[Rfam]
RNA: Histone 3' UTR stem-loop
RNA sequence: CCAACGGCCCUCUUUAGGGCCACAAAUCUAAUGAACCAAACUUUGU
Number, nucleotide and partner (000 for none) at each position: 001c000002c000003a000004a000005c000006g021007g020008c019009c018010c017011u016012c000013u000014u000015u000016a011017g010018g009019g008020c007021c006022a000023c000024a000025a000026a000027u000028c000029u000030a000031a000032u000033g000034a000035a000036c000037c000038a000039a000040a000041c000042u000043u000044u000045g000046u000